Annotation
The family of this 146-nucleotide RNA from Centropus unirufus is "Small Cajal body specific RNA 3". Rfam 15.1 lists 642 matches to the family in 535 species. On this family, see Darzacq et al., EMBO J 2002: "Cajal body-specific small nuclear RNAs: a novel class of 2'-O-methylation and pseudouridylation guide RNAs". The source organism's lineage runs through Eukaryota, Chordata, Gnathostomata, Cuculiformes and Centropus. Rfam links the family to the GO terms Cajal body, nucleolus and RNA processing. From the family's description: scaRNAs are a specific class of small nuclear RNAs which localise to the Cajal bodies and guide the modification of RNA polymerase II transcribed spliceosomal RNAs U1, U2, U4, U5 and U12.
RNA sequence: ACUGGAAGCUGCUGGGACCAAUCGGGACCAGACGUGGGCAAGAAAAAUAUGUUUUGUCCACUAUUUGCAGUCUUCCUAGAGCAAACUGGAGGUCUCUGUCUGCUUUAGGAGAGCUGACUAAACCAGAUCGUUCCCCUCCAAACACU
Numbered sequence: 001a002c003u004g005g006a007a008g009c010u011g012c013u014g015g016g017a018c019c020a021a022u023c024g025g026g027a028c029c030a031g032a033c034g035u036g037g038g039c040a041a042g043a044a045a046a047a048u049a050u051g052u053u054u055u056g057u058c059c060a061c062u063a064u065u066u067g068c069a070g071u072c073u074u075c076c077u078a079g080a081g082c083a084a085a086c087u088g089g090a091g092g093u094c095u096c097u098g099u100c101u102g103c104u105u106u107a108g109g110a111g112a113g114c115u116g117a118c119u120a121a122a123c124c125a126g127a128u129c130g131u132u133c134c135c136c137u138c139c140a141a142a143c144a145c146u
Stems, first nucleotide, its partner, number of pairs: 004076003008071005034061006043055003088139005096130001098128003102124001104122005